[Rfam]
RNA sequence: CUAUCCUUUAAGCUAAUCCAGAGAGUUUGGCAAGGGUGUUUGUUCGGCCACAAGUCUAUCUUGUUGCCUUGAAGCUCCUUGCCUACCUGGUAAGGAGUUUUAUUUAU
Numbered sequence: 001c002u003a004u005c006c007u008u009u010a011a012g013c014u015a016a017u018c019c020a021g022a023g024a025g026u027u028u029g030g031c032a033a034g035g036g037u038g039u040u041u042g043u044u045c046g047g048c049c050a051c052a053a054g055u056c057u058a059u060c061u062u063g064u065u066g067c068c069u070u071g072a073a074g075c076u077c078c079u080u081g082c083c084u085a086c087c088u089g090g091u092a093a094g095g096a097g098u099u100u101u102a103u104u105u106a107u
Base pairs, nucleotide, nucleotide: 003037004036005035006034007033008032013030014029015028016027018025046068047067048066050064051063052062053061054060070102071101072100073099074098075097076096077095078094079093080092081091082090083089
Notes:
PyrR binding site: a 107-nucleotide sequence from Pelosinus sp. UFO1. The family's RNA type in Rfam is cis-regulatory element. The base pairs follow the family's consensus structure, which is taken from published work. A reference for the family is Bonner et al. (2001), "Molecular recognition of pyr mRNA by the Bacillus subtilis attenuation regulatory protein PyrR", Nucleic Acids Res.